EcpR1: a 114-nucleotide RNA from Roseibium hamelinense. Pairs were carried over by alignment from the consensus structure, which was predicted with WAR.
RNA sequence: AUUCCCUACGGAGUGCUCAGGUCCGCCGCAUCUCCUGGGUCCGUGGGGUUGGCCGGUGGUGAGACGGGUCGAAGAGUGGCCUCCUCGACACCCCAGUCUCCCGCCGGCCACCAG
Dot-bracket structure: ...(((((((.....((((((............))))))..)))))))..(((((((((.(.....................................).))))))))).....
Perviously named SmelC291, SmrC10, or Sra33. According to its overproduction phenotype it was renamed Elongated Cell Phenotype RNA1. Induced by stress,EcpR1 negatively regulates cell cycle master regulatory genes dnaA and gcrA at post-transcriptional level by base pairing between its strongly conserved GC-rich loop and the target mRNAs.